[Rfam]
RNA sequence: GGCGUGAUAUUUGUUUUAGAAUUCCUACGCUUUACCGGAUAUAUCGAAAGUGGCAAAGCGUUUGAAAUCUGAACCGAAUGGGCG
Numbered sequence: 001g002g003c004g005u006g007a008u009a010u011u012u013g014u015u016u017u018a019g020a021a022u023u024c025c026u027a028c029g030c031u032u033u034a035c036c037g038g039a040u041a042u043a044u045c046g047a048a049a050g051u052g053g054c055a056a057a058g059c060g061u062u063u064g065a066a067a068u069c070u071g072a073a074c075c076g077a078a079u080g081g082g083c084g
Base pairs, nucleotide, nucleotide: 010078011077012076013075015073016072017071018070019069020068022066023065024064027061028060029059030058031057032056033055035053036052
Record summary:
mir-927 microRNA precursor family: an 84-nucleotide RNA sequence. The base pairs follow the family's consensus structure, which was predicted with RNAalifold. A reference for the family is Berezikov et al. (2010), "Evolutionary flux of canonical microRNAs and mirtrons in Drosophila", Nat Genet. It scores 73 bits against the family's covariance model. The family has 16 seed sequences and 174 matches in Rfam 15.1. Rfam links the family to the GO terms RISC complex and miRNA-mediated post-transcriptional gene silencing.